[Rfam]
RNA sequence: GUUGCUUCUUACUGGUGAACGCUCUCAGAUUUAACAGUGAGGGAUGUUCAUGUUUCCGAAGCAUAAAUUAAUCUGUUUUUAGCCAGUUUUAAACAGCGUUGUGCGUUAUUAUCUUAAAAGCACUGCGCUACCUGUCUCCUGGUAUAUAU
Numbered sequence: 001g002u003u004g005c006u007u008c009u010u011a012c013u014g015g016u017g018a019a020c021g022c023u024c025u026c027a028g029a030u031u032u033a034a035c036a037g038u039g040a041g042g043g044a045u046g047u048u049c050a051u052g053u054u055u056c057c058g059a060a061g062c063a064u065a066a067a068u069u070a071a072u073c074u075g076u077u078u079u080u081a082g083c084c085a086g087u088u089u090u091a092a093a094c095a096g097c098g099u100u101g102u103g104c105g106u107u108a109u110u111a112u113c114u115u116a117a118a119a120g121c122a123c124u125g126c127g128c129u130a131c132c133u134g135u136c137u138c139c140u141g142g143u144a145u146a147u148a149u
Stems, first nucleotide, its partner, number of pairs: 003063006016050005022043004082143005095129003099125001101123003
Rfam assigns this 149-nucleotide RNA sequence from Gossypium australe to the family "small nucleolar RNA snoR137". Its family is annotated with nucleolus and RNA processing in the Gene Ontology. The match comes from Rfam's covariance-model search (118 bits). A reference for the family is Chen and Wu (2009), "Mining small RNA sequencing data: a new approach to identify small nucleolar RNAs in Arabidopsis", Nucleic Acids Res.